[Rfam]
RNA: c-di-GMP-I riboswitch aptamer
Organism: Ilyobacter polytropus
RNA sequence: AAAAAUAUUCGGCAAACUAAUGGAAAUGUUAGGACGCAAAACUAUAGGGCCUUUAAAAUGGCAGCCAGUUGCAAAA
Numbered sequence: 001a002a003a004a005a006u007a008u009u010c011g012g013c014a015a016a017c018u019a020a021u022g023g024a025a026a027u028g029u030u031a032g033g034a035c036g037c038a039a040a041a042c043u044a045u046a047g048g049g050c051c052u053u054u055a056a057a058a059u060g061g062c063a064g065c066c067a068g069u070u071g072c073a074a075a076a
Stems, first nucleotide, its partner, number of pairs: 012037002017032006040070004047066002049062003